Shown here is a 116-nucleotide RNA from Gavia stellata, a member of the family "Small nucleolar RNA SNORD90". It is annotated as a C/D-box small nucleolar RNA. A search with the family's covariance model found it, with a score of 56 bits. Rfam 15.1 lists 545 matches to the family in 524 species. Rfam's curators write: snoRNA HBII-295 belongs to the family of C/D snoRNAs. It is the human orthologue of the mouse MBII-295 and has no identified RNA target.
[Rfam]
Nucleotides: 116
Base pairs, nucleotide, nucleotide: 014108016106017105018104019103020102021101031096035092036091037090039085040084041083044080047079048078050076052074055071056070057069058068059067
Number, partner (000 for none) and nucleotide at each position: 001000c002000u003000a004000a005000c006000u007000g008000c009000c010000u011000u012000u013000u014108u015000u016106g017105u018104g019103u020102c021101u022000a023000a024000u025000g026000a027000u028000g029000a030000a031096g032000c033000u034000u035092c036091a037090u038000a039085g040084g041083g042000c043000a044080g045000a046000u047079u048078c049000u050076g051000a052074g053000c054000u055071g056070a057069g058068a059067a060000a061000u062000u063000a064000a065000a066000u067059u068058u069057c070056u071055c072000u073000c074052c075000a076050c077000u078048g079047a080044u081000a082000c083041u084040c085039u086000c087000u088000a089000u090037a091036u092035g093000c094000c095000a096031u097000c098000u099000g100000a101021a102020g103019a104018c105017a106016c107000u108014a109000u110000g111000u112000a113000u114000u115000g116000c